Shown here is an 81-nucleotide RNA from Columba livia, a member of the family "let-7 microRNA precursor family". The organism belongs to Columba, within Eukaryota. This family represents the microRNAs (miRNA) let-7 and mir-98. let-7 was identified from a study of developmental timing in C. elegans, and was later shown to be part of a much larger class of non-coding RNAs termed miRNAs. The family is grouped with related families in Rfam's "let-7 microRNA precursor clan". The family's consensus secondary structure was predicted with RNAalifold.
[Rfam]
RNA sequence: UUGGGGUGAGGUAGUAGGUUGUAUAGUUUUAGGGCUCUGCCCUGCCUGUCACAUAACUAUACAAUCUACUGUCUUUCCUGA
Numbered sequence: 001u002u003g004g005g006g007u008g009a010g011g012u013a014g015u016a017g018g019u020u021g022u023a024u025a026g027u028u029u030u031a032g033g034g035c036u037c038u039g040c041c042c043u044g045c046c047u048g049u050c051a052c053a054u055a056a057c058u059a060u061a062c063a064a065u066c067u068a069c070u071g072u073c074u075u076u077c078c079u080g081a
Stems, first nucleotide, its partner, number of pairs: 001081006008075020032042004044052001